[Rfam]
RNA sequence: AUUGAUGCAGUGAUUAAAAAACAUUCCUCGUACUGAAUGCCUAAUUGGCUUGACAGACUAACCAACCCAUAGAAUAUGAGCAUCA
Dot-bracket structure: ..((.((.........................................................................)).))
Numbered sequence: 001a002u003u004g005a006u007g008c009a010g011u012g013a014u015u016a017a018a019a020a021a022c023a024u025u026c027c028u029c030g031u032a033c034u035g036a037a038u039g040c041c042u043a044a045u046u047g048g049c050u051u052g053a054c055a056g057a058c059u060a061a062c063c064a065a066c067c068c069a070u071a072g073a074a075u076a077u078g079a080g081c082a083u084c085a
Stems, first nucleotide, its partner, number of pairs: 003085002006082002

Shown here is an 85-nucleotide sequence from Carex littledalei, a member of the family "Small nucleolar RNA snoR8a". A search with the family's covariance model found it, with a score of 72 bits. Rfam 15.1 lists 956 matches to the family in 245 species. The base pairs follow the family's consensus structure, which was predicted with WAR. Rfam classes the family as a C/D-box small nucleolar RNA.